[Rfam]
RNA sequence: CGAACAUGAUGAUGAAUGUUUUAUGCGGUCUGAUAUAAUUCAUGAAUGAACAUCAAACCUCCUACUCAUUCUGA
Numbered sequence: 001c002g003a004a005c006a007u008g009a010u011g012a013u014g015a016a017u018g019u020u021u022u023a024u025g026c027g028g029u030c031u032g033a034u035a036u037a038a039u040u041c042a043u044g045a046a047u048g049a050a051c052a053u054c055a056a057a058c059c060u061c062c063u064a065c066u067c068a069u070u071c072u073g074a
Base pairs, nucleotide, nucleotide: 006069007068008067009066030044
Dot-bracket structure: .....((((....................(.............).....................)))).....

A member of the RNA family "Small nucleolar RNA Z105" from Mikania micrantha, 74 nucleotides long. Rfam 15.1 lists 621 matches to the family in 204 species. It scores 49 bits against the family's covariance model. By type it is a C/D-box small nucleolar RNA.